[Rfam]
The family of this 252-nucleotide RNA from Trifolium subterraneum is "MIR2655 microRNA precursor family". Rfam 15.1 lists 892 matches to the family in 5 species. Rfam links the family to the GO terms miRNA-mediated post-transcriptional gene silencing and RISC complex. The match comes from Rfam's covariance-model search (123 bits).
Nucleotides: 252
Base pairs, nucleotide, nucleotide: 002250003249004248005247006246007245008244023229024228025227027225028224029223031221033219034218035217036216037215038214039213040212042210043209045207046206
Number, partner (000 for none) and nucleotide at each position: 001000c002250c003249c004248u005247u006246a007245u008244c009000u010000u011000u012000u013000a014000a015000a016000a017000a018000u019000u020000u021000c022000a023229a024228g025227u026000u027225g028224g029223u030000c031221c032000a033219u034218u035217a036216u037215c038214u039213u040212u041000a042210u043209u044000u045207u046206a047000a048000g049000u050000u051000u052000c053000a054000a055000g056000u057000u058000g059000g060000u061000c062000c063000c064000u065000u066000c067000c068000g069000u070000c071000a072000a073000u074000u075000u076000u077000g078000u079000a080000a081000c082000u083000a084000u085000u086000u087000c088000u089000g090000u091000u092000a093000a094000a095000u096000u097000u098000g099000g100000a101000c102000a103000u104000g105000u106000g107000g108000c109000a110000a111000a112000c113000u114000a115000a116000u117000u118000u119000g120000g121000a122000c123000a124000c125000g126000u127000g128000g129000c130000a131000c132000a133000c134000u135000u136000g137000g138000a139000c140000a141000u142000a143000u144000g145000a146000c147000a148000u149000g150000u151000g152000u153000c154000c155000a156000a157000a158000u159000u160000u161000a162000a163000a164000g165000g166000u167000a168000a169000c170000c171000g172000u173000a174000a175000a176000a177000a178000a179000a180000a181000u182000g183000a184000c185000g186000g187000a188000a189000g190000g191000g192000a193000c194000c195000a196000a197000c198000u199000u200000g201000a202000a203000a204000c205000c206046u207045a208000a209043a210042a211000a212040a213039a214038a215037g216036a217035u218034a219033a220000c221031g222000g223029a224028u225027c226000a227025a228024c229023u230000u231000g232000a233000a234000a235000c236000u237000u238000u239000u240000a241000a242000a243000a244008g245007a246006u247005a248004a249003g250002g251000g252000a